The family of this 86-nucleotide RNA sequence from Coptis chinensis is "Small nucleolar RNA SNORD34". Lineage of the source: Eukaryota > Viridiplantae > Ranunculales > Coptidoideae > Coptis. The family is grouped with related families in Rfam's "SNORD34 clan". Rfam classes the family as a C/D-box small nucleolar RNA. A search with the family's covariance model found it, with a score of 49 bits. For this family Rfam cites "Purified box C/D snoRNPs are able to reproduce site-specific 2'-O-methylation of target RNA in vitro" (Galardi et al., Mol Cell Biol, 2002). snoRNA U34 is found in intron 5 of the ribosomal protein L13a gene in humans.
RNA sequence: AAAGGUCUAUGAUGAACAGCACAUUUGCCGACAUUGUUUGAUUCUCUCAAUGAUGAUAACAAUCUGCGACAUAUUCUGAGGCCUUU
Numbered sequence: 001a002a003a004g005g006u007c008u009a010u011g012a013u014g015a016a017c018a019g020c021a022c023a024u025u026u027g028c029c030g031a032c033a034u035u036g037u038u039u040g041a042u043u044c045u046c047u048c049a050a051u052g053a054u055g056a057u058a059a060c061a062a063u064c065u066g067c068g069a070c071a072u073a074u075u076c077u078g079a080g081g082c083c084u085u086u
Stems, first nucleotide, its partner, number of pairs: 001086002004083004
Dot-bracket structure: ((.((((........................................................................)))).))